[Rfam]
RNA sequence: GGAUGUGAGGGCGAUCUGGCUGCGACAUCUGUCACCCCAUUGAUCGCCAGGGUUGAUUCGGCUGAUCUGGCUGGCUAGGCAGGUGUCCCCUUCCUCCCUCACCGCUCCAUGUGCGUCCCUCCCGAAGCUGCGUGCUCGGUUGAAGAGGACGACCUUCCCCGAUAGAGGAGGACCGUUCUUCGGUCAAGGGUAUAUGAGUAGCUGCGCUCCCCUGCUAGAACCUCCAAACAAGCUCUCAAAAUGGGGUAGGGAAGGAAGAGCAUGAGAAGAAGAUUGCCACUACAU
Numbered sequence: 001g002g003a004u005g006u007g008a009g010g011g012c013g014a015u016c017u018g019g020c021u022g023c024g025a026c027a028u029c030u031g032u033c034a035c036c037c038c039a040u041u042g043a044u045c046g047c048c049a050g051g052g053u054u055g056a057u058u059c060g061g062c063u064g065a066u067c068u069g070g071c072u073g074g075c076u077a078g079g080c081a082g083g084u085g086u087c088c089c090c091u092u093c094c095u096c097c098c099u100c101a102c103c104g105c106u107c108c109a110u111g112u113g114c115g116u117c118c119c120u121c122c123c124g125a126a127g128c129u130g131c132g133u134g135c136u137c138g139g140u141u142g143a144a145g146a147g148g149a150c151g152a153c154c155u156u157c158c159c160c161g162a163u164a165g166a167g168g169a170g171g172a173c174c175g176u177u178c179u180u181c182g183g184u185c186a187a188g189g190g191u192a193u194a195u196g197a198g199u200a201g202c203u204g205c206g207c208u209c210c211c212c213u214g215c216u217a218g219a220a221c222c223u224c225c226a227a228a229c230a231a232g233c234u235c236u237c238a239a240a241a242u243g244g245g246g247u248a249g250g251g252a253a254g255g256a257a258g259a260g261c262a263u264g265a266g267a268a269g270a271a272g273a274u275u276g277c278c279a280c281u282a283c284a285u
Stems, first nucleotide, its partner, number of pairs: 001108003005102007013093002018090002024087010035074002037070003042067004046062003116171002118168004122139004127135002140162003147158003201261003207258002210255002213252001215250001222246004
The record is a 285-nucleotide sequence from Marmota monax, which matches "7SK RNA" in Rfam. The literature on the family includes a 2002 paper in Curr Biol by Blencowe, "Transcription: surprising role for an elusive small nuclear RNA". The base pairs follow the family's consensus structure, which is taken from published work. 7SK was discovered as an abundant small nuclear RNA in the mid-70s but a possible function has only recently been suggested. The organism belongs to Marmota, within Eukaryota.